A member of the RNA family "bZIP non canonical Hac1/Xbp1 intron" from Neohortaea acidophila, 64 nucleotides long. The literature on the family includes a 2011 paper in RNA Biol by Hooks and Griffiths-Jones, "Conserved RNA structures in the non-canonical Hac1/Xbp1 intron". The family's consensus secondary structure was predicted with RNAfold. Rfam describes the family as follows. bZIP intron RNA is a non-canonical intron that was first reported in HAC1 gene in yeast and XBP1 gene in Metazoa. A search with the family's covariance model found it, with a score of 46 bits.
[Rfam]
RNA sequence: GCAACUCGACCCGACACAACAUUCUGCAGCAAUGUUGUGCGACCUGCAGUGUCGGUCGACCUGC
Numbered sequence: 001g002c003a004a005c006u007c008g009a010c011c012c013g014a015c016a017c018a019a020c021a022u023u024c025u026g027c028a029g030c031a032a033u034g035u036u037g038u039g040c041g042a043c044c045u046g047c048a049g050u051g052u053c054g055g056u057c058g059a060c061c062u063g064c
Base pairs, nucleotide, nucleotide: 001064002063003062007058008057009056010055011054018036019035020034021033022032023031041053042052043051